[Rfam]
RNA sequence: ACUAGCACUUACGUACUAGGCUGUUAUAUACCGUACCUUUGGCACU
Numbered sequence: 001a002c003u004a005g006c007a008c009u010u011a012c013g014u015a016c017u018a019g020g021c022u023g024u025u026a027u028a029u030a031c032c033g034u035a036c037c038u039u040u041g042g043c044a045c046u
Stems, first nucleotide, its partner, number of pairs: 002019004007014002033045002036042002
A member of the RNA family "Acido-Lenti-1 RNA" from Lentisphaera araneosa, 46 nucleotides long.
It is annotated as a small RNA.
A search with the family's covariance model found it, with a score of 44 bits.
The family's consensus secondary structure is taken from published work.
Lineage of the source: Bacteria > Lentisphaerota > Lentisphaeria > Lentisphaeraceae > Lentisphaera araneosa.